[Rfam]
RNA sequence: UAAGUAAGACAGACGGUCGCAGCUGCAAGUGUCGAAAGACCGCAGAUGAGGAAAGUCCGGGCUUCAUAGGGCAGGGUGCCGGAUAACGUCCGGUGGAGGCGACUCUAAGGAUAGUGCAACAGAAAUGUACCGCGUUAGCAAUGAGGUGUGCAGCCUCUUGCAAGUAUAUGUGCUGUAAAUUUAUUUAUAAGUCCAUAUACUUGCAAGAGGCUAUACGGUGAAUGCCGCGUAGAGUGAGUUGUUUUACAACUCACUCUACCGCACACCUCUUAUAGCGUAAGGUUGGAAGGGCAGUGUAAGAGACUACCGCCCUGUUGGUAACAACAGGGGCAUAUGUAAACCCCACCCGAAGCAAAACCGAAUGAAAACAUUGUGGUUGCCCGCCACGUUUUAGGUAGGUUGCUUGAACCUAUUGGCAACGAUAGGUCUAGAUAGAUGACCGUCCAACGACAUAACCCGGCUUAUCGUCUUGCUUACAUA
Numbered sequence: 001u002a003a004g005u006a007a008g009a010c011a012g013a014c015g016g017u018c019g020c021a022g023c024u025g026c027a028a029g030u031g032u033c034g035a036a037a038g039a040c041c042g043c044a045g046a047u048g049a050g051g052a053a054a055g056u057c058c059g060g061g062c063u064u065c066a067u068a069g070g071g072c073a074g075g076g077u078g079c080c081g082g083a084u085a086a087c088g089u090c091c092g093g094u095g096g097a098g099g100c101g102a103c104u105c106u107a108a109g110g111a112u113a114g115u116g117c118a119a120c121a122g123a124a125a126u127g128u129a130c131c132g133c134g135u136u137a138g139c140a141a142u143g144a145g146g147u148g149u150g151c152a153g154c155c156u157c158u159u160g161c162a163a164g165u166a167u168a169u170g171u172g173c174u175g176u177a178a179a180u181u182u183a184u185u186u187a188u189a190a191g192u193c194c195a196u197a198u199a200c201u202u203g204c205a206a207g208a209g210g211c212u213a214u215a216c217g218g219u220g221a222a223u224g225c226c227g228c229g230u231a232g233a234g235u236g237a238g239u240u241g242u243u244u245u246a247c248a249a250c251u252c253a254c255u256c257u258a259c260c261g262c263a264c265a266c267c268u269c270u271u272a273u274a275g276c277g278u279a280a281g282g283u284u285g286g287a288a289g290g291g292c293a294g295u296g297u298a299a300g301a302g303a304c305u306a307c308c309g310c311c312c313u314g315u316u317g318g319u320a321a322c323a324a325c326a327g328g329g330g331c332a333u334a335u336g337u338a339a340a341c342c343c344c345a346c347c348c349g350a351a352g353c354a355a356a357a358c359c360g361a362a363u364g365a366a367a368a369c370a371u372u373g374u375g376g377u378u379g380c381c382c383g384c385c386a387c388g389u390u391u392u393a394g395g396u397a398g399g400u401u402g403c404u405u406g407a408a409c410c411u412a413u414u415g416g417c418a419a420c421g422a423u424a425g426g427u428c429u430a431g432a433u434a435g436a437u438g439a440c441c442g443u444c445c446a447a448c449g450a451c452a453u454a455a456c457c458c459g460g461c462u463u464a465u466c467g468u469c470u471u472g473c474u475u476a477c478a479u480a
Base pairs, nucleotide, nucleotide: 001476002475003474004473005472006471007470008469009468010467011465012444013443014442015441016440017439018438020048021047023045024044025043026042053463054462055461057460058459059458060457061456062352063351064350065349069382070381071380072379074348075347076346077345078344079093080092081091082090083089094108095106096105097104098103109343110342114341115340116337117336118335130282131281132278133277134276135275136274137273140270290308291307293305294304295303309331310329311328312327313326314325315324316323317322356401357400358399359398367390368389369388373387374386375385376384377383408427409426410425411424412423413422414421415420
Rfam assigns this 480-nucleotide RNA from Lachnospiraceae bacterium 2_1_46FAA to the family "Bacterial RNase P class A". The organism belongs to Lachnospiraceae, within Bacteria. By type it is a ribozyme.